[Rfam]
RNA sequence: UCACACAGCAUUGUACCUUAUCUGUCCCCAGACAUUGCACCUGGUGCUGUUAGGCUGAAAUUAAGGUAUUUU
Numbered sequence: 001u002c003a004c005a006c007a008g009c010a011u012u013g014u015a016c017c018u019u020a021u022c023u024g025u026c027c028c029c030a031g032a033c034a035u036u037g038c039a040c041c042u043g044g045u046g047c048u049g050u051u052a053g054g055c056u057g058a059a060a061u062u063a064a065g066g067u068a069u070u071u072u
Stems, first nucleotide, its partner, number of pairs: 005050005017044002021032004
Shown here is a 72-nucleotide RNA sequence from Myotis davidii, a member of the family "U1A polyadenylation inhibition element (PIE)". Rfam's curators write: This family represents the U1A polyadenylation inhibition element (PIE). PIE is a regulatory RNA which is responsible for the regulation of the length of the polyA tail of the U1A pre-mRNA. The PIE is located in the U1A mRNA 3' UTR. PIE adopts a U-shaped structure, with binding sites for a single U1A protein at each bend and when complexed with the two proteins it blocks activity of poly(A) polymerase (PAP), and inhibits its activity. Pairs were carried over by alignment from the consensus structure, which is taken from published work. Lineage of the source: Eukaryota > Opisthokonta > Teleostomi > Yangochiroptera > Myotis. The literature on the family includes a 2004 paper in Biochemistry by Clerte and Hall, "Global and Local Dynamics of the U1A Polyadenylation Inhibition Element (PIE) RNA and PIE RNA-U1A Complexes". It is annotated as a cis-regulatory element.